[Rfam]
RNA sequence: CCUUAUAUUGCUGUAGCAGCACAUCAUGGUUUGCAGGGCUGCUUUCAUAACUCAAGCCAUUAUUUGCUGCUGUAGUGCUUUAAGG
Numbered sequence: 001c002c003u004u005a006u007a008u009u010g011c012u013g014u015a016g017c018a019g020c021a022c023a024u025c026a027u028g029g030u031u032u033g034c035a036g037g038g039c040u041g042c043u044u045u046c047a048u049a050a051c052u053c054a055a056g057c058c059a060u061u062a063u064u065u066g067c068u069g070c071u072g073u074a075g076u077g078c079u080u081u082a083a084g085g
Base pairs, nucleotide, nucleotide: 001085002084003083004082005081013073014072015071016070017069018068019067020066021065023063024062026060027059028058029057030056031055032054033053

Background
mir-15 microRNA precursor family: an 85-nucleotide RNA from Scyliorhinus torazame. Pairs were carried over by alignment from the consensus structure, which was predicted with RNAalifold. Rfam describes the family as follows. This family represents the related mir-15a and mir-15b sequences. In humans miR-15a and miR-16 are clustered within 0.5 kb at 13q14. This region has been shown to be deleted in more than half of B cell chronic lymphocytic leukaemias (CLL).